[Rfam]
RNA: mir-9256 microRNA precursor family
Organism: Pipistrellus kuhlii
RNA sequence: UUAUACACUGAGUGGCCAGAUUAUUAUAACUUCUGAAUGUAUAAUAAUCUGGCCACUCGGUGUAUAA
Number, nucleotide and partner (000 for none) at each position: 001u000002u000003a000004u064005a063006c062007a061008c060009u059010g058011a057012g056013u055014g054015g053016c052017c051018a000019g049020a048021u047022u046023a045024u044025u043026a042027u041028a040029a000030c000031u000032u000033c000034u000035g000036a000037a000038u000039g000040u028041a027042u026043a025044a024045u023046a022047a021048u020049c019050u000051g017052g016053c015054c014055a013056c012057u011058c010059g009060g008061u007062g006063u005064a004065u000066a000067a000